[Rfam]
RNA: Group II catalytic intron D1-D4-3
Organism: Taibaiella sp.
RNA sequence: UCCAACGUGAGGUGGAAUCUGAAGGAAGGCAGCGGCAAAUCUCCGGCCUGACGAACAGGAAGCAGAUGAGGCAGUCUUAUGAGGGCGAGUUUGCAAAACAAAACAAAGCCUUGAACUAUUCGAAUCAUAAGGCUGUAUAUCUGACAGGUGUAUGGAGAGAAAGUUUGCGUU
Numbered sequence: 001u002c003c004a005a006c007g008u009g010a011g012g013u014g015g016a017a018u019c020u021g022a023a024g025g026a027a028g029g030c031a032g033c034g035g036c037a038a039a040u041c042u043c044c045g046g047c048c049u050g051a052c053g054a055a056c057a058g059g060a061a062g063c064a065g066a067u068g069a070g071g072c073a074g075u076c077u078u079a080u081g082a083g084g085g086c087g088a089g090u091u092u093g094c095a096a097a098a099c100a101a102a103a104c105a106a107a108g109c110c111u112u113g114a115a116c117u118a119u120u121c122g123a124a125u126c127a128u129a130a131g132g133c134u135g136u137a138u139a140u141c142u143g144a145c146a147g148g149u150g151u152a153u154g155g156a157g158a159g160a161a162a163g164u165u166u167g168c169g170u171u
Base pairs, nucleotide, nucleotide: 001016002015003014004013006011028171029170030169035164036163040158041157042156043155044154045153046149047148048147049146050145063143064142065141066140071136072135073134075132076131077130078129079128080127081126083111084110085109086108089104090103091102092101